[Rfam]
RNA sequence: AAGUAGCAAUUAAUCAAGAGGUUGCCGGACUUCCGGGUUAUUCUUGAGGAGUAUGUCUGGAUCUAGAAUCCGACGA
Numbered sequence: 001a002a003g004u005a006g007c008a009a010u011u012a013a014u015c016a017a018g019a020g021g022u023u024g025c026c027g028g029a030c031u032u033c034c035g036g037g038u039u040a041u042u043c044u045u046g047a048g049g050a051g052u053a054u055g056u057c058u059g060g061a062u063c064u065a066g067a068a069u070c071c072g073a074c075g076a
Stems, first nucleotide, its partner, number of pairs: 014047003018043003021039001025036004054075004059071004